[Rfam]
RNA sequence: AGAGGAGUUCGCGGGAGCCUUGGGAAGCAGGGCUGAGAGGGCGCAGGAGCCGACCGCCAGACCUGAUGCGGAUCAUGCCGCCGGAGGGAGAUCACAUGGACGUCAU
Numbered sequence: 001a002g003a004g005g006a007g008u009u010c011g012c013g014g015g016a017g018c019c020u021u022g023g024g025a026a027g028c029a030g031g032g033c034u035g036a037g038a039g040g041g042c043g044c045a046g047g048a049g050c051c052g053a054c055c056g057c058c059a060g061a062c063c064u065g066a067u068g069c070g071g072a073u074c075a076u077g078c079c080g081c082c083g084g085a086g087g088g089a090g091a092u093c094a095c096a097u098g099g100a101c102g103u104c105a106u
Stems, first nucleotide, its partner, number of pairs: 007093001009091002011057004017033005040051003062087003068081004
The record is a 106-nucleotide RNA sequence from Brevibacterium sanguinis, which matches "TPP riboswitch aptamer (THI element)" in Rfam. A search with the family's covariance model found it, with a score of 60 bits. Pairs were carried over by alignment from the consensus structure, which is taken from published work. NCBI's taxonomy places the organism under Bacteria, Actinomycetota, Actinomycetes, Micrococcales, Brevibacterium.